[Rfam]
RNA sequence: ACUAUAGAAGUGGUGCCAUUUCAGCAGUUGUUAGGCCUGUGAUAAAAAAAUAUAUAUAUUUUUAUCACAGGCCUAACAACUGCUGAAAUGGCACCACUUCUA
Numbered sequence: 001a002c003u004a005u006a007g008a009a010g011u012g013g014u015g016c017c018a019u020u021u022c023a024g025c026a027g028u029u030g031u032u033a034g035g036c037c038u039g040u041g042a043u044a045a046a047a048a049a050a051u052a053u054a055u056a057u058a059u060u061u062u063u064a065u066c067a068c069a070g071g072c073c074u075a076a077c078a079a080c081u082g083c084u085g086a087a088a089u090g091g092c093a094c095c096a097c098u099u100c101u102a
Stems, first nucleotide, its partner, number of pairs: 015092007023084015039068006